Shown here is a 198-nucleotide sequence from Leptolyngbya sp. BL0902, a member of the family "Guanidine-I riboswitch aptamer". The literature on the family includes a 2017 paper in Structure by Reiss et al., "Structural Basis for Ligand Binding to the Guanidine-I Riboswitch".
[Rfam]
RNA sequence: AUCCAGCGCCUCUAGGGUUCCGAUUGGCUCAAAGGCUUUCCCAACUAGGCUUAGCCCGAUUCGGUCAGGCAAGUUGAUAGCAGUUUGGUGCGAGUGUCUGGUCCAAGAGAGGCGGGUUAGGUAGGCGUGGUUAGUCCUGGCAAUCCCUAGGCCAAUCUUACCUAUCUAACUACACGGCGGGACAAAAGCCCGGGAGAC
Numbered sequence: 001a002u003c004c005a006g007c008g009c010c011u012c013u014a015g016g017g018u019u020c021c022g023a024u025u026g027g028c029u030c031a032a033a034g035g036c037u038u039u040c041c042c043a044a045c046u047a048g049g050c051u052u053a054g055c056c057c058g059a060u061u062c063g064g065u066c067a068g069g070c071a072a073g074u075u076g077a078u079a080g081c082a083g084u085u086u087g088g089u090g091c092g093a094g095u096g097u098c099u100g101g102u103c104c105a106a107g108a109g110a111g112g113c114g115g116g117u118u119a120g121g122u123a124g125g126c127g128u129g130g131u132u133a134g135u136c137c138u139g140g141c142a143a144u145c146c147c148u149a150g151g152c153c154a155a156u157c158u159u160a161c162c163u164a165u166c167u168a169a170c171u172a173c174a175c176g177g178c179g180g181g182a183c184a185a186a187a188g189c190c191c192g193g194g195a196g197a198c
Base pairs, nucleotide, nucleotide: 007114008113009112010111011110012109015104016103020101021100022098023095024094025093027091028090115171116170117169118168119167120166121165122164123163124162125161173193175196179191180190181189